[Rfam]
RNA sequence: AUGGGUAUGUCUACACUACCCCGCUAGUUCGAACUAGCGGGGUAGUGUAGACAUACCCUAUUUCAAAAUAGUUUUUGUGUAGAGAUGCGUUAUUUCGAAUUACCUUAAUUCGAAUUAACUAUUUCAAAU
Numbered sequence: 001a002u003g004g005g006u007a008u009g010u011c012u013a014c015a016c017u018a019c020c021c022c023g024c025u026a027g028u029u030c031g032a033a034c035u036a037g038c039g040g041g042g043u044a045g046u047g048u049a050g051a052c053a054u055a056c057c058c059u060a061u062u063u064c065a066a067a068a069u070a071g072u073u074u075u076u077g078u079g080u081a082g083a084g085a086u087g088c089g090u091u092a093u094u095u096c097g098a099a100u101u102a103c104c105u106u107a108a109u110u111c112g113a114a115u116u117a118a119c120u121a122u123u124u125c126a127a128a129u
Stems, first nucleotide, its partner, number of pairs: 003058003016045011068122004073118002083106001084101003088097001
Small nucleolar RNA SNORA72: a 129-nucleotide RNA sequence from Pelodiscus sinensis. U72 is a member of the H/ACA class of snoRNAs. The snoRNA gene is located in intron 4 of the ribosomal L30 protein gene in human, mouse and chicken. Pairs were carried over by alignment from the consensus structure, which was predicted with PFOLD. It scores 43 bits against the family's covariance model. For this family Rfam cites "The family of box ACA small nucleolar RNAs is defined by an evolutionarily conserved secondary structure and ubiquitous sequence elements essential for RNA accumulation" (Ganot et al., Genes Dev, 1997). Taxonomically the source falls in Pelodiscus (Eukaryota, Eumetazoa, Sarcopterygii, Cryptodira).